Rfam assigns this 88-nucleotide RNA from Miscanthus lutarioriparius to the family "Small nucleolar RNA Z161/Z228". Rfam classes the family as a C/D-box small nucleolar RNA. The literature on the family includes a 2003 paper in Nucleic Acids Res by Chen et al., "The high diversity of snoRNAs in plants: identification and comparative study of 120 snoRNA genes from Oryza sativa". The organism belongs to Miscanthus, within Eukaryota. Its Rfam clan is "SNORD35 clan". The family's consensus secondary structure was predicted with PFOLD. A search with the family's covariance model found it, with a score of 68 bits.
[Rfam]
Nucleotides: 088
Base pairs, nucleotide, nucleotide: 001088002087004085048054049053
Number, partner (000 for none) and nucleotide at each position: 001088g002087g003000a004085c005000c006000a007000u008000a009000u010000g011000a012000u013000g014000a015000g016000a017000a018000a019000c020000u021000u022000u023000a024000u025000g026000c027000a028000a029000c030000u031000c032000a033000c034000g035000a036000c037000g038000g039000u040000c041000g042000u043000c044000u045000g046000a047000g048054a049053c050000u051000u052000u053049g054048u055000g056000u057000g058000u059000a060000a061000u062000g063000u064000u065000g066000c067000a068000g069000u070000c071000a072000u073000g074000u075000u076000u077000u078000c079000u080000c081000u082000g083000a084000u085004g086000c087002u088001c